[Rfam]
RNA sequence: UUUAAAUAAGGGCAAAACUACUGAAAAGUAGCGACGCAAAGCUAGAGUCUAAAGCUACACCCUGUGGGGUAGCCAUGAUCGUUCAGCUGCAUAA
Numbered sequence: 001u002u003u004a005a006a007u008a009a010g011g012g013c014a015a016a017a018c019u020a021c022u023g024a025a026a027a028g029u030a031g032c033g034a035c036g037c038a039a040a041g042c043u044a045g046a047g048u049c050u051a052a053a054g055c056u057a058c059a060c061c062c063u064g065u066g067g068g069g070u071a072g073c074c075a076u077g078a079u080c081g082u083u084c085a086g087c088u089g090c091a092u093a094a
Base pairs, nucleotide, nucleotide: 012037013036018031019030020029021028022027040088041087042086043085045084046083047079048078049077054073055072056071057070

Source information
Rfam assigns this 94-nucleotide RNA sequence from Proteiniborus ethanoligenes to the family "c-di-GMP-I riboswitch aptamer". GEMM was predicted in a large-scale screen for bacterial structured RNA regulatory elements. Taxonomically the source falls in Proteiniborus (Bacteria, Bacillati, Bacillota, Clostridia). The family's consensus secondary structure is taken from published work.